[Rfam]
The family of this 119-nucleotide RNA sequence from Ilyobacter polytropus is "Molybdenum/Tungsten riboswitch aptamer (Moco RNA motif)". NCBI's taxonomy places the organism under Bacteria, Fusobacteriota, Fusobacteriales, Ilyobacter, Ilyobacter polytropus. It scores 65 bits against the family's covariance model. The base pairs follow the family's consensus structure, which is taken from published work.
RNA sequence: UUUAUAUUGCUACUCCGAGUGUAAAUUCCUAAGGAUAAAAUCUAGGGAACUGCACCACUGGGUAGACAGGGAAACCGGUCUGCCUCCCGCGUUUGGAAAGGAGCCAAAAAAAGGAGGGG
Numbered sequence: 001u002u003u004a005u006a007u008u009g010c011u012a013c014u015c016c017g018a019g020u021g022u023a024a025a026u027u028c029c030u031a032a033g034g035a036u037a038a039a040a041u042c043u044a045g046g047g048a049a050c051u052g053c054a055c056c057a058c059u060g061g062g063u064a065g066a067c068a069g070g071g072a073a074a075c076c077g078g079u080c081u082g083c084c085u086c087c088c089g090c091g092u093u094u095g096g097a098a099a100g101g102a103g104c105c106a107a108a109a110a111a112a113g114g115a116g117g118g119g
Stems, first nucleotide, its partner, number of pairs: 003113001013103004019055005026049004033043004060085008069076002086096002